[Rfam]
RNA sequence: GAACGAGAUGAUGAGGAAUAUGUUUCCCUAUUGGUUUGAUUGCCGAUAUGAUGACAUCAAUCAUGUAUUAGGAGUUUGGAUUAUUU
Numbered sequence: 001g002a003a004c005g006a007g008a009u010g011a012u013g014a015g016g017a018a019u020a021u022g023u024u025u026c027c028c029u030a031u032u033g034g035u036u037u038g039a040u041u042g043c044c045g046a047u048a049u050g051a052u053g054a055c056a057u058c059a060a061u062c063a064u065g066u067a068u069u070a071g072g073a074g075u076u077u078g079g080a081u082u083a084u085u086u
Stems, first nucleotide, its partner, number of pairs: 002085002005082001038058001041056002044053001
RNA: Small nucleolar RNA Z102/R77